[Rfam]
RNA: Plastid-ycf2 5UTR RNA
Organism: Gossypium anomalum
RNA sequence: UUGCAUCCAGUAGGAAUUGAACCUACGAAAUCACCAACUAUGAGUUGGGCGUUUUAACCAUUCAGCCAUGGAUGC
Numbered sequence: 001u002u003g004c005a006u007c008c009a010g011u012a013g014g015a016a017u018u019g020a021a022c023c024u025a026c027g028a029a030a031u032c033a034c035c036a037a038c039u040a041u042g043a044g045u046u047g048g049g050c051g052u053u054u055u056a057a058c059c060a061u062u063c064a065g066c067c068a069u070g071g072a073u074g075c
Base pairs, nucleotide, nucleotide: 003075004074005073006072007071008070010026011025012024013023014022040069041068042067044066045065046064047063048062049061051059